[Rfam]
RNA sequence: CCAGAUAACCCAUUAUCUGAGCUCAGACGGUAUGCAUUAGAAGUAAUUCUUUUGUGUAAAGCCCGUUUAAUUUGGUAAACAGACCAACCAACCUAUAUAUAAGGAUGGUGAGCUAUAUUACUAUGGAUAAA
Dot-bracket structure: .((((((......))))))......(((((((((((..((((....))))..))))))....)))))....(((((......))))).(.............).((((((........)))))).......